This 66-nucleotide RNA from Spinacia oleracea belongs to the Rfam family "Small nucleolar RNA U49".
Rfam links the family to the GO terms nucleolus and RNA processing.
A reference for the family is Brown et al. (2001), "Multiple snoRNA gene clusters from Arabidopsis", RNA.
Rfam classes the family as a C/D-box small nucleolar RNA.
Clan: SNORD49 clan.
RNA sequence: UCCCAAUGAUGAAGAAUUCCCAUCAAAGAUAGGAAGUGCCGUCUGACACUUUAUAUAGCAUAAUCG
Numbered sequence: 001u002c003c004c005a006a007u008g009a010u011g012a013a014g015a016a017u018u019c020c021c022a023u024c025a026a027a028g029a030u031a032g033g034a035a036g037u038g039c040c041g042u043c044u045g046a047c048a049c050u051u052u053a054u055a056u057a058g059c060a061u062a063a064u065c066g
Base pairs, nucleotide, nucleotide: 015061033052034051035050036049037048038047